[Rfam]
RNA sequence: AUGGAUAAUGAUGCGUGGCAAGAUCCACUACACAACUCUUAAAAGGUAGAAAUUGGAGACGAGAGGUGAGGAGAAAAUAAAACUGAUGCGUGUCUUGAUGUUUCUGUUUUAAGUCUUCUCUUCACCCCCUCUCCAAUUACAAACAGUUUGUCAUGUGAGAUUUCAAGCUCAAGCCAUGGCAAACCGGCAAGUCAAUCUACGGCAAGUGGUGAGCUCCUUAUCAGGGUUUC
Numbered sequence: 001a002u003g004g005a006u007a008a009u010g011a012u013g014c015g016u017g018g019c020a021a022g023a024u025c026c027a028c029u030a031c032a033c034a035a036c037u038c039u040u041a042a043a044a045g046g047u048a049g050a051a052a053u054u055g056g057a058g059a060c061g062a063g064a065g066g067u068g069a070g071g072a073g074a075a076a077a078u079a080a081a082a083c084u085g086a087u088g089c090g091u092g093u094c095u096u097g098a099u100g101u102u103u104c105u106g107u108u109u110u111a112a113g114u115c116u117u118c119u120c121u122u123c124a125c126c127c128c129c130u131c132u133c134c135a136a137u138u139a140c141a142a143a144c145a146g147u148u149u150g151u152c153a154u155g156u157g158a159g160a161u162u163u164c165a166a167g168c169u170c171a172a173g174c175c176a177u178g179g180c181a182a183a184c185c186g187g188c189a190a191g192u193c194a195a196u197c198u199a200c201g202g203c204a205a206g207u208g209g210u211g212a213g214c215u216c217c218u219u220a221u222c223a224g225g226g227u228u229u230c
Stems, first nucleotide, its partner, number of pairs: 063133003146184006162173001212228005
Dot-bracket structure: ..............................................................(((.................................................................)))............((((((..........(..........).....))))))...........................(((((.......)))))..

This 230-nucleotide RNA sequence from Carex littledalei belongs to the Rfam family "Early nodulin 40". A reference for the family is Gultyaev and Roussis (2007), "Identification of conserved secondary structures and expansion segments in enod40 RNAs reveals new enod40 homologues in plants", Nucleic Acids Res. The family's consensus secondary structure is taken from published work. Rfam links the family to the GO term nodulation. Rfam classes the family as a non-coding RNA gene.